[Rfam]
The family of this 131-nucleotide sequence from Rhinoptilus africanus is "Small nucleolar RNA SNORA55". The family has 29 seed sequences and 1,476 matches in Rfam 15.1.
RNA sequence: GCAUCUGAAUCUUUCCUACUUCUUGCGAUAUAGUGCUGGACUGGGGACACACAACACAACAGGAAAGCAGAGGAAAUCCAGACAAGCCCAUUCACCACAGUGGGACUUGUCUCUGUGCCUUUGCAACAUUU
Dot-bracket structure: (..(........((((((..((...............))..))))))......)..).........((((((.......(((((((........(((...)))..)))))))......)))))).......